[Rfam]
RNA sequence: UAUUAAAAAUUUCAUCCAUUCCAGCUGUUAAAGACUAGCCCAUGUACGUCAAUAUGUGGUAAAUGUAGCAUGUCAUGUAUCACUAACUAGUUAUCAUAUCAGCCACGUCAGUUUUUAAUAGUAUAAAUAAAUGAAAUUUUUAAUA
Numbered sequence: 001u002a003u004u005a006a007a008a009a010u011u012u013c014a015u016c017c018a019u020u021c022c023a024g025c026u027g028u029u030a031a032a033g034a035c036u037a038g039c040c041c042a043u044g045u046a047c048g049u050c051a052a053u054a055u056g057u058g059g060u061a062a063a064u065g066u067a068g069c070a071u072g073u074c075a076u077g078u079a080u081c082a083c084u085a086a087c088u089a090g091u092u093a094u095c096a097u098a099u100c101a102g103c104c105a106c107g108u109c110a111g112u113u114u115u116u117a118a119u120a121g122u123a124u125a126a127a128u129a130a131a132u133g134a135a136a137u138u139u140u141u142a143a144u145a
Base pairs, nucleotide, nucleotide: 002144003143004142005141006140007139008138009137010136011135012134013133014132015131018128019127020126024122025121026120028118029117030116031115032114033113
RNA: MIR7502 microRNA precursor family